The record is a 69-nucleotide RNA sequence from Esox lucius, which matches "miR-430 microRNA precursor family" in Rfam. A reference for the family is Giraldez et al. (2005), "MicroRNAs regulate brain morphogenesis in zebrafish", Science. Rfam links the family to the GO terms RISC complex and miRNA-mediated post-transcriptional gene silencing. Rfam 15.1 lists 24,817 matches to the family in 105 species.

RNA sequence: AUUGGUACCCUAACACGAGUAUUGACUUGUCUAUAUAAUGCAGUAAGUGCUACUUGUUGGGUAGUUGAA
Numbered sequence: 001a002u003u004g005g006u007a008c009c010c011u012a013a014c015a016c017g018a019g020u021a022u023u024g025a026c027u028u029g030u031c032u033a034u035a036u037a038a039u040g041c042a043g044u045a046a047g048u049g050c051u052a053c054u055u056g057u058u059g060g061g062u063a064g065u066u067g068a069a
Stems, first nucleotide, its partner, number of pairs: 004065001006063005013057003017053001018051006025044003
Its Rfam clan is "mir-290 clan".